Source information
The record is a 164-nucleotide sequence from Anaeromicropila herbilytica, which matches "glmS glucosamine-6-phosphate activated ribozyme aptamer" in Rfam. The source organism's lineage runs through Bacteria, Bacillati, Clostridia, Lachnospirales and Anaeromicropila.
[Rfam]
Nucleotides: 164
Base pairs, nucleotide, nucleotide: 022045023044024043025042026041027040028039055088056087057086058085059084065076066075067074068073089106090105091104092103093102094101110154111153112152113151114150115149116148124139125138126137127136128135129134
Number, partner (000 for none) and nucleotide at each position: 001000u002000g003000c004000a005000a006000a007000a008000a009000g010000a011000a012000a013000g014000c015000g016000c017000c018000a019000u020000g021000u022045a023044c024043c025042u026041c027040a028039u029000g030000a031000u032000c033000g034000g035000a036000a037000a038000g039028a040027u041026g042025a043024g044023g045022u046000u047000a048000a049000c050000g051000a052000g053000g054000a055088g056087a057086a058085g059084a060000g061000u062000u063000u064000a065076u066075c067074g068073a069000a070000a071000a072000u073068u074067c075066g076065g077000c078000g079000g080000a081000u082000g083000c084059u085058c086057u087056u088055c089106c090105a091104u092103g093102c094101u095000u096000c097000u098000u099000u100000g101094g102093g103092c104091g105090u106089g107000a108000g109000a110154u111153g112152u113151a114150u115149c116148g117000a118000a119000a120000a121000a122000a123000a124139c125138u126137a127136u128135g129134g130000g131000c132000a133000a134129c135128u136127g137126u138125a139124g140000a141000a142000c143000a144000a145000a146000u147000a148116c149115g150114a151113u152112g153111c154110a155000a156000c157000c158000a159000a160000a161000g162000a163000a164000a
From the family's description: This entry contains a glucosamine-6-phosphate activated ribozyme that is found in the mRNA for GlmS. GlmS is an enzyme that uses fructose-6-phosphate and glutamine to generate glucosamine-6-phosphate. A reference for the family is Hampel and Tinsley (2006), "Evidence for preorganization of the glmS ribozyme ligand binding pocket", Biochemistry.